[Rfam]
RNA sequence: GAGAACUAAGCUUCCAAUGAGUCGAAUGAGGGAGUAACGCCCCGAAAGGCUCGCCUAAUACUCCGAAUAGCGUCCGGCAUAGCAAGGUGCCGGGGGUUAUAAGCUCGGUGAAGACGGCUGAAGGCCAUCCUAACGUAAAGUCGAGGAAAGCGCCCUGGAGGCAGGGUGUGUGGCUGAUAGGCCGGGGUCUAUAAG
Numbered sequence: 001g002a003g004a005a006c007u008a009a010g011c012u013u014c015c016a017a018u019g020a021g022u023c024g025a026a027u028g029a030g031g032g033a034g035u036a037a038c039g040c041c042c043c044g045a046a047a048g049g050c051u052c053g054c055c056u057a058a059u060a061c062u063c064c065g066a067a068u069a070g071c072g073u074c075c076g077g078c079a080u081a082g083c084a085a086g087g088u089g090c091c092g093g094g095g096g097u098u099a100u101a102a103g104c105u106c107g108g109u110g111a112a113g114a115c116g117g118c119u120g121a122a123g124g125c126c127a128u129c130c131u132a133a134c135g136u137a138a139a140g141u142c143g144a145g146g147a148a149a150g151c152g153c154c155c156u157g158g159a160g161g162c163a164g165g166g167u168g169u170g171u172g173g174c175u176g177a178u179a180g181g182c183c184g185g186g187g188u189c190u191a192u193a194a195g
Stems, first nucleotide, its partner, number of pairs: 018053006031043002034040001054187003063108004067100005073094008115184005123175006129146003135142001150169008

The record is a 195-nucleotide RNA sequence from Ectobacillus ponti, which matches "Group II catalytic intron D1-D4-5" in Rfam. Its family is annotated with Group II intron splicing in the Gene Ontology. It scores 168 bits against the family's covariance model. From the family's description: Group II introns are found in rRNA, tRNA and mRNA of organelles in fungi, plants and protists, and also in mRNA in bacteria.